[Rfam]
RNA sequence: GCACGUGGAAAUGCCUUCUUAUUCCUUUUGGAGGAAAACUACAUCCAUACCACGGUACACUAAAAACAGGAGUUCUCAGGAUUAUCAACCUUACAGUAGAGGUUGAGUAGUAGUAUAUUUCUCCUACAUUA
Numbered sequence: 001g002c003a004c005g006u007g008g009a010a011a012u013g014c015c016u017u018c019u020u021a022u023u024c025c026u027u028u029u030g031g032a033g034g035a036a037a038a039c040u041a042c043a044u045c046c047a048u049a050c051c052a053c054g055g056u057a058c059a060c061u062a063a064a065a066a067c068a069g070g071a072g073u074u075c076u077c078a079g080g081a082u083u084a085u086c087a088a089c090c091u092u093a094c095a096g097u098a099g100a101g102g103u104u105g106a107g108u109a110g111u112a113g114u115a116u117a118u119u120u121c122u123c124c125u126a127c128a129u130u131a
Base pairs, nucleotide, nucleotide: 004054005053006052007051008050014034015033016032017031018030069124070123071122072121081111082110085107086105087104088103089102090101091100092099
Record summary: Rfam assigns this 131-nucleotide RNA from Jaculus jaculus to the family "Small nucleolar RNA U109". A reference for the family is Gu et al. (2005), "A novel experimental approach for systematic identification of box H/ACA snoRNAs from eukaryotes", Nucleic Acids Res. Gene Ontology terms of the family: nucleolus and RNA processing. The family has 26 seed sequences and 1,405 matches in Rfam 15.1. Pairs were carried over by alignment from the consensus structure, which was predicted with WAR. Rfam classes the family as an H/ACA-box small nucleolar RNA.